Rfam assigns this 89-nucleotide RNA from Agrilutibacter solisilvae to the family "c-di-GMP-I riboswitch aptamer". Lineage of the source: Bacteria > Pseudomonadota > Gammaproteobacteria > Lysobacteraceae > Agrilutibacter.
RNA sequence: GUACGCAAAGAGCACACCCGGCGCGAGCCGGGGCCGCAAAGCCCAGGGUCCGGGCGCCUCCCUCCGCCCGCGACAGCCAGGUUGCCUUA
Numbered sequence: 001g002u003a004c005g006c007a008a009a010g011a012g013c014a015c016a017c018c019c020g021g022c023g024c025g026a027g028c029c030g031g032g033g034c035c036g037c038a039a040a041g042c043c044c045a046g047g048g049u050c051c052g053g054g055c056g057c058c059u060c061c062c063u064c065c066g067c068c069c070g071c072g073a074c075a076g077c078c079a080g081g082u083u084g085c086c087u088u089a
Base pairs, nucleotide, nucleotide: 012037013036017032018031019030020029021028022027040083041082042081043080046078047077048074049073050072053068054067055066056065